Rfam assigns this 460-nucleotide part of an RNA from Rhodnius prolixus to the family "Eukaryotic large subunit ribosomal RNA".
The base pairs follow the family's consensus structure, which is taken from published work.
NCBI's taxonomy places the organism under Eukaryota, Pancrustacea, Prosorrhyncha, Triatominae, Rhodnius.
A search with the family's covariance model found it, with a score of 2967 bits.
[Rfam]
RNA sequence: AACAGGUCGUUGCCGUAGUAAUCCUGCUUAGUACGAGAGGAACCGCAGGUUCGGGCAUUUGGUACACGCACUCGGUCGACAGGCCGGUGGUGCGAUGCCACCGUCCGCGGGAUUAUGCCUGAACGCCUCUAAGGCCGAAUCCCGACUAUGGUUCAACGAUUUAACAAUGGGUCCCGUGAGUCGAAAGGCUCAAAACAAUGUGACUUUAAUAGGCGGCCGGUUUAAACGGCUGUCGCAUGAGCCUUGUGGCUAAAAAUUCCAUUGUGUAAUUAAAUAUAUAGUAAAUUCUAGAUAUUUAAUUGGUUUUUUUAGCGUAACAUGGUUGAACCCUUCGGGGAGUUCGAUGUCGGGACCCAGAAUCGUCUGUAGACGACUUUUGUACCGGGCGGGGUGUUGUACUCGGGAGAGCAGUUAACUCGCUGCGAUCUGUUGAGACUCAGCCCUAGCUGGGGAGAUUCGU
Numbered sequence: 001a002a003c004a005g006g007u008c009g010u011u012g013c014c015g016u017a018g019u020a021a022u023c024c025u026g027c028u029u030a031g032u033a034c035g036a037g038a039g040g041a042a043c044c045g046c047a048g049g050u051u052c053g054g055g056c057a058u059u060u061g062g063u064a065c066a067c068g069c070a071c072u073c074g075g076u077c078g079a080c081a082g083g084c085c086g087g088u089g090g091u092g093c094g095a096u097g098c099c100a101c102c103g104u105c106c107g108c109g110g111g112a113u114u115a116u117g118c119c120u121g122a123a124c125g126c127c128u129c130u131a132a133g134g135c136c137g138a139a140u141c142c143c144g145a146c147u148a149u150g151g152u153u154c155a156a157c158g159a160u161u162u163a164a165c166a167a168u169g170g171g172u173c174c175c176g177u178g179a180g181u182c183g184a185a186a187g188g189c190u191c192a193a194a195a196c197a198a199u200g201u202g203a204c205u206u207u208a209a210u211a212g213g214c215g216g217c218c219g220g221u222u223u224a225a226a227c228g229g230c231u232g233u234c235g236c237a238u239g240a241g242c243c244u245u246g247u248g249g250c251u252a253a254a255a256a257u258u259c260c261a262u263u264g265u266g267u268a269a270u271u272a273a274a275u276a277u278a279u280a281g282u283a284a285a286u287u288c289u290a291g292a293u294a295u296u297u298a299a300u301u302g303g304u305u306u307u308u309u310u311a312g313c314g315u316a317a318c319a320u321g322g323u324u325g326a327a328c329c330c331u332u333c334g335g336g337g338a339g340u341u342c343g344a345u346g347u348c349g350g351g352a353c354c355c356a357g358a359a360u361c362g363u364c365u366g367u368a369g370a371c372g373a374c375u376u377u378u379g380u381a382c383c384g385g386g387c388g389g390g391g392u393g394u395u396g397u398a399c400u401c402g403g404g405a406g407a408g409c410a411g412u413u414a415a416c417u418c419g420c421u422g423c424g425a426u427c428u429g430u431u432g433a434g435a436c437u438c439a440g441c442c443c444u445a446g447c448u449g450g451g452g453a454g455a456u457u458c459g460u
Stems, first nucleotide, its partner, number of pairs: 006160007016148004021051001023049005052107005060100003067094005072087006109143003117135004171353006357458005362378001366374001383450001385448003389443003393436002401429003405426001408423005